RNA sequence: GGGAGCAGAUAGGUGCUGGUGUGCCUCCCGGUCUUCAAAACCGGUGCGGACGGCGAACAGCCGCCUGGAUGAGUUCGAUCCUCAUAUGCCCCC
Number, nucleotide and partner (000 for none) at each position: 001g093002g092003g091004a000005g089006c088007a087008g000009a085010u000011a026012g025013g024014u023015g022016c021017u000018g000019g000020u000021g016022u015023g014024c013025c012026u011027c000028c044029c043030g042031g041032u040033c000034u000035u000036c000037a000038a000039a000040a032041c031042c030043g029044g028045u000046g000047c067048g066049g065050a000051c063052g000053g000054c000055g000056a000057a000058c000059a000060g000061c000062c000063g051064c000065c049066u048067g047068g000069a000070u084071g083072a082073g081074u000075u000076c000077g000078a000079u000080c000081c073082u072083c071084a070085u009086a000087u007088g006089c005090c000091c003092c002093c001
This 93-nucleotide sequence from Dysosmobacter segnis belongs to the Rfam family "Selenocysteine transfer RNA". A search with the family's covariance model found it, with a score of 62 bits. The literature on the family includes a 2000 paper in FEBS Lett by Mizutani and Goto, "Eukaryotic selenocysteine tRNA has the 9/4 secondary structure". NCBI's taxonomy places the organism under Bacteria, Bacillota, Eubacteriales, Oscillospiraceae, Dysosmobacter.